This 138-nucleotide RNA sequence from Xiphophorus maculatus belongs to the Rfam family "Small nucleolar RNA SNORA29".
Gene Ontology terms of the family: RNA processing and nucleolus.
Taxonomically the source falls in Xiphophorus (Eukaryota, Craniata, Actinopterygii, Neoteleostei).
[Rfam]
RNA sequence: AAUCCCAUUUUAGUACCUUCCACUCACUGUCUAAUGAAUGGAGGGCUAUGCUAAUGGGGAAGAGAAACACUGUCAUGGUCUGAAGGUGUGGCUAGCUGACUGUGCGCCCCACUAAAUAAGCUGACAGAACAGCUGAAU
Numbered sequence: 001a002a003u004c005c006c007a008u009u010u011u012a013g014u015a016c017c018u019u020c021c022a023c024u025c026a027c028u029g030u031c032u033a034a035u036g037a038a039u040g041g042a043g044g045g046c047u048a049u050g051c052u053a054a055u056g057g058g059g060a061a062g063a064g065a066a067a068c069a070c071u072g073u074c075a076u077g078g079u080c081u082g083a084a085g086g087u088g089u090g091g092c093u094a095g096c097u098g099a100c101u102g103u104g105c106g107c108c109c110c111a112c113u114a115a116a117u118a119a120g121c122u123g124a125c126a127g128a129a130c131a132g133c134u135g136a137a138u
Stems, first nucleotide, its partner, number of pairs: 004058004016045004072125004090113002
Its Rfam clan is "SNORA20 clan". On this family, see Huttenhofer et al., EMBO J 2001: "RNomics: an experimental approach that identifies 201 candidates for novel, small, non-messenger RNAs in mouse". Rfam 15.1 lists 960 matches to the family in 621 species. ACA29 is a member of the H/ACA class of snoRNA that guide the sites of modification of uridines to pseudouridines. Rfam classes the family as an H/ACA-box small nucleolar RNA.